RNA sequence: CUGCAUGUUUAUCCAAGAGCUGUGGCUCCCUGCAGUAGCCUCAGGUCUCCAACUACAUGCAAGAGCAACGGGAAGGUCUUUGACUGCUGGGCCUCUUCUGCCCGUUGCUGUCACUCGCCCCUCCUAUAUUU
Numbered sequence: 001c002u003g004c005a006u007g008u009u010u011a012u013c014c015a016a017g018a019g020c021u022g023u024g025g026c027u028c029c030c031u032g033c034a035g036u037a038g039c040c041u042c043a044g045g046u047c048u049c050c051a052a053c054u055a056c057a058u059g060c061a062a063g064a065g066c067a068a069c070g071g072g073a074a075g076g077u078c079u080u081u082g083a084c085u086g087c088u089g090g091g092c093c094u095c096u097u098c099u100g101c102c103c104g105u106u107g108c109u110g111u112c113a114c115u116c117g118c119c120c121c122u123c124c125u126a127u128a129u130u131u
Stems, first nucleotide, its partner, number of pairs: 013045002018041002020035005071124003075120002086111002088104004